[Rfam]
RNA sequence: GGACUGGGUAAUCUCUGCAGGCAACUGUGACUGUAAUGCAUACCUCACAUUAACCUGGAGAGAUUUUACAGUCU
Numbered sequence: 001g002g003a004c005u006g007g008g009u010a011a012u013c014u015c016u017g018c019a020g021g022c023a024a025c026u027g028u029g030a031c032u033g034u035a036a037u038g039c040a041u042a043c044c045u046c047a048c049a050u051u052a053a054c055c056u057g058g059a060g061a062g063a064u065u066u067u068a069c070a071g072u073c074u
Stems, first nucleotide, its partner, number of pairs: 003072004010065007020056002024051001026049005